[Rfam]
Background
Shown here is a 90-nucleotide sequence from Aegilops tauschii, a member of the family "Small nucleolar RNA snoR26". The base pairs follow the family's consensus structure, which was predicted with WAR.

RNA sequence: AGAGCAUCUGUGAUGUGCUAUAUUCAUCCUUGCACUUUGAGGUAUGCGUACCUAUGAAGAAAGCAUUGGGGAUAAUAUUCUGAGAUGCUU
Numbered sequence: 001a002g003a004g005c006a007u008c009u010g011u012g013a014u015g016u017g018c019u020a021u022a023u024u025c026a027u028c029c030u031u032g033c034a035c036u037u038u039g040a041g042g043u044a045u046g047c048g049u050a051c052c053u054a055u056g057a058a059g060a061a062a063g064c065a066u067u068g069g070g071g072a073u074a075a076u077a078u079u080c081u082g083a084g085a086u087g088c089u090u
Base pairs, nucleotide, nucleotide: 002090003089004088005087006086007085008084

The source organism's lineage runs through Eukaryota, Viridiplantae, Petrosaviidae, Aegilops and Aegilops tauschii.
Its family is annotated with RNA processing and nucleolus in the Gene Ontology.
It scores 57 bits against the family's covariance model.
A reference for the family is Brown et al. (2001), "Multiple snoRNA gene clusters from Arabidopsis", RNA.